[Rfam]
RNA sequence: AAGAUGACCUUAACACAGGCACUGACUUGAGCUUCUUUGCAGUAAGUGCUACAUGUUGGGGUAGUUUGG
Number, nucleotide and partner (000 for none) at each position: 001a000002a000003g000004a065005u064006g000007a062008c061009c060010u059011u058012a000013a056014c055015a054016c000017a000018g050019g049020c048021a047022c046023u045024g000025a043026c042027u041028u000029g000030a000031g000032c000033u000034u000035c000036u000037u000038u000039g000040c000041a027042g026043u025044a000045a023046g022047u021048g020049c019050u018051a000052c000053a000054u015055g014056u013057u000058g011059g010060g009061g008062u007063a000064g005065u004066u000067u000068g000069g000
RNA: miR-430 microRNA precursor family